[Rfam]
RNA sequence: GUUCAGUUGGAAGUGGGGCCAUUACACUGUAAGAGAGUGAGUAGCAGGUCUCACAGUGAACUGGUCUCUUUUCUUACUGUGUC
Dot-bracket structure: .....((.((....(((((((...((((((..(((..............)))))))))...)))))))....)).))......
Source information:
This 83-nucleotide sequence from Laticauda laticaudata belongs to the Rfam family "mir-128 microRNA precursor family". Its family is annotated with miRNA-mediated post-transcriptional gene silencing and RISC complex in the Gene Ontology. The family's consensus secondary structure was predicted with RNAalifold.